[Rfam]
About this RNA:
A member of the RNA family "Bacteroidales-1 6S-Bacteroidales RNA suggested" from Porphyromonas sp. COT-290 OH860, 167 nucleotides long. The match comes from Rfam's covariance-model search (93 bits). Rfam classes the family as a small RNA. Pairs were carried over by alignment from the consensus structure, which is taken from published work. The literature on the family includes a 2020 paper in Nat Commun by Ryan et al., "A high-resolution transcriptome map identifies small RNA regulation of metabolism in the gut microbe Bacteroides thetaiotaomicron". From the family's description: Bacteroidales-1 was first reported in a comparative genomics-based approach of genome and metagenome sequences from Weinberg et al. 2010 In a high-resolution transcriptome map study of Bacteroides thetaiotaomicron, Ryan et al. 2020 report this sRNA as 6S RNA homologue of Bacteroides, in the study they obtain evidence of small product RNAs (pRNAs) related to 6S function.

RNA sequence: AGCCACGUUGUCGAUAGGUAGACUCAACGUUAAAAUCUUUUUCCGAGACAAGCUUCUCCUCCAAUGGCGUGUCGUAAUCCUCUUGAGGAUAUGCGAAUUACAAAGGUUGAGGAGCACUCAAAUCCUGUCAUUCGGAGUUUUCACUUUUAUCGCUCGUGGCUUUUUAU
Numbered sequence: 001a002g003c004c005a006c007g008u009u010g011u012c013g014a015u016a017g018g019u020a021g022a023c024u025c026a027a028c029g030u031u032a033a034a035a036u037c038u039u040u041u042u043c044c045g046a047g048a049c050a051a052g053c054u055u056c057u058c059c060u061c062c063a064a065u066g067g068c069g070u071g072u073c074g075u076a077a078u079c080c081u082c083u084u085g086a087g088g089a090u091a092u093g094c095g096a097a098u099u100a101c102a103a104a105g106g107u108u109g110a111g112g113a114g115c116a117c118u119c120a121a122a123u124c125c126u127g128u129c130a131u132u133c134g135g136a137g138u139u140u141u142c143a144c145u146u147u148u149a150u151c152g153c154u155c156g157u158g159g160c161u162u163u164u165u166a167u
Stems, first nucleotide, its partner, number of pairs: 052115007061106002065102002072096004079088003